[Rfam]
RNA sequence: AACUUAUCAAGAGAGGUGGAGGGACUGGCCCUGUGAAAUUCAGCAACCUAUUUUUAAUUGAAAGUUGAUAAUUAUGGAUAAAAGUCCUAAGGGACUUUAAUUAUCAAUUAUUCAUUGUUAAAUAUCAAUUAAAUUUGUGGUGCUAAUUCUAACAAUUUACUGAAAGAUAAGGA
Numbered sequence: 001a002a003c004u005u006a007u008c009a010a011g012a013g014a015g016g017u018g019g020a021g022g023g024a025c026u027g028g029c030c031c032u033g034u035g036a037a038a039u040u041c042a043g044c045a046a047c048c049u050a051u052u053u054u055u056a057a058u059u060g061a062a063a064g065u066u067g068a069u070a071a072u073u074a075u076g077g078a079u080a081a082a083a084g085u086c087c088u089a090a091g092g093g094a095c096u097u098u099a100a101u102u103a104u105c106a107a108u109u110a111u112u113c114a115u116u117g118u119u120a121a122a123u124a125u126c127a128a129u130u131a132a133a134u135u136u137g138u139g140g141u142g143c144u145a146a147u148u149c150u151a152a153c154a155a156u157u158u159a160c161u162g163a164a165a166g167a168u169a170a171g172g173a
Stems, first nucleotide, its partner, number of pairs: 003171006013041001015040003021031003026151003042144004047140002050135001052133003148165001153162002
RNA: SAM riboswitch aptamer (S box leader)